[Rfam]
The record is a 72-nucleotide RNA from Medicago truncatula, which matches "MIR2629 microRNA precursor family" in Rfam.
Its family is annotated with RISC complex and miRNA-mediated post-transcriptional gene silencing in the Gene Ontology.
RNA sequence: UACCGAGGAUUUCUUCGGCAGUUAACUGCCGCCGGUUUUCUUAAACUUCGGCAGUUAACCGCCGAUGGGAUA
Numbered sequence: 001u002a003c004c005g006a007g008g009a010u011u012u013c014u015u016c017g018g019c020a021g022u023u024a025a026c027u028g029c030c031g032c033c034g035g036u037u038u039u040c041u042u043a044a045a046c047u048u049c050g051g052c053a054g055u056u057a058a059c060c061g062c063c064g065a066u067g068g069g070a071u072a
Base pairs, nucleotide, nucleotide: 012068013067015065016064017063018062019061021059022058023057024056025055026054027053028052029051030050031049